[Rfam]
RNA sequence: GAGGUAAUCUCAAAUUGUAACAGUGGGUUGAUUUUCCUGGUGAAUCCCGGCCUUGUCCUCCGUCACAAGUGUGACAAGUGUCUCGAAAACGUGUUCGCUAUACCCACGUUACAGAUUGGGGUUUCCCC
Dot-bracket structure: (.((.((((((((.(((((((.((((((..........(((((((...............................................)))))))..))))))))))))).)))))))).)).)
RNA: mir-1889 microRNA precursor family
Organism: Aedes aegypti